[Rfam]
RNA sequence: UGGAGGACUGAGAAGGUAAGACAGUUAUACCUUAUGCUGUACCUUACUGGUUAUAGCCUCCAAAAUUAUAGUAGUGCAAUGGCAGCUCAUGUUCCCCUCCAGUCUUGAGGGAAAACAAUACUGCAUUUG
Numbered sequence: 001u002g003g004a005g006g007a008c009u010g011a012g013a014a015g016g017u018a019a020g021a022c023a024g025u026u027a028u029a030c031c032u033u034a035u036g037c038u039g040u041a042c043c044u045u046a047c048u049g050g051u052u053a054u055a056g057c058c059u060c061c062a063a064a065a066u067u068a069u070a071g072u073a074g075u076g077c078a079a080u081g082g083c084a085g086c087u088c089a090u091g092u093u094c095c096c097c098u099c100c101a102g103u104c105u106u107g108a109g110g111g112a113a114a115a116c117a118a119u120a121c122u123g124c125a126u127u128u129g
Stems, first nucleotide, its partner, number of pairs: 002061005015048004021040005081122002085119001087117001093113001095111003100107001
Shown here is a 129-nucleotide RNA from Nothoprocta perdicaria, a member of the family "Small nucleolar RNA SNORA47". Pairs were carried over by alignment from the consensus structure, which was predicted with WAR. Rfam classes the family as an H/ACA-box small nucleolar RNA. A search with the family's covariance model found it, with a score of 72 bits. For this family Rfam cites "RNomics: an experimental approach that identifies 201 candidates for novel, small, non-messenger RNAs in mouse" (Huttenhofer et al., EMBO J, 2001). Rfam links the family to the GO terms nucleolus and RNA processing.